[Rfam]
RNA sequence: ACUGACCUAGAGGCAUUGCUGGUGUGGCUAAUGUGUCACAUGUGCAUCAAUAAGUGGCAGAGAGGAGAGAGGGUAUGUCUAGGCUCAGUGUUCUGGUCUAUGAACAUCUGAAUGAUUAGUAACCUAACAUU
Numbered sequence: 001a002c003u004g005a006c007c008u009a010g011a012g013g014c015a016u017u018g019c020u021g022g023u024g025u026g027g028c029u030a031a032u033g034u035g036u037c038a039c040a041u042g043u044g045c046a047u048c049a050a051u052a053a054g055u056g057g058c059a060g061a062g063a064g065g066a067g068a069g070a071g072g073g074u075a076u077g078u079c080u081a082g083g084c085u086c087a088g089u090g091u092u093c094u095g096g097u098c099u100a101u102g103a104a105c106a107u108c109u110g111a112a113u114g115a116u117u118a119g120u121a122a123c124c125u126a127a128c129a130u131u
Stems, first nucleotide, its partner, number of pairs: 002060003006056001007054001008052002012048002018045002023040006067128001070125003074121003083113001085111004089106005

The family of this 131-nucleotide sequence from Mus spicilegus is "Small nucleolar RNA SNORA17". NCBI's taxonomy places the organism under Eukaryota, Eumetazoa, Amniota, Euarchontoglires, Mus. Rfam describes the family as follows. snoRNA ACA 17 belongs to the H/ACA family of snoRNAs and is predicted to guide pseudouridylation of the 28S rRNA at positions U4659 and U4598. It shares the same host gene together with ACA43. NB This family has a high threshold value to exclude a large number of closely related sequences that do not appear to have conserved H and ACA boxes, and may be pseudogenes. It scores 111 bits against the family's covariance model. Its family is annotated with RNA processing and nucleolus in the Gene Ontology.